[Rfam]
RNA: Plastid-ccsA-ndhD-1 3UTR RNA
Organism: Ricinus communis
RNA sequence: AAACCGUUGAGAACCUUUUGAAUCAUUAUAUUACUUGAUUCAAAAAGUCAUUAUAUUACUUGAUUCAAAAAGUUCUCACAAA
Dot-bracket structure: .......(((((((.((((((((((...................................)))))))))).)))))))....
Numbered sequence: 001a002a003a004c005c006g007u008u009g010a011g012a013a014c015c016u017u018u019u020g021a022a023u024c025a026u027u028a029u030a031u032u033a034c035u036u037g038a039u040u041c042a043a044a045a046a047g048u049c050a051u052u053a054u055a056u057u058a059c060u061u062g063a064u065u066c067a068a069a070a071a072g073u074u075c076u077c078a079c080a081a082a
Stems, first nucleotide, its partner, number of pairs: 008078007016070010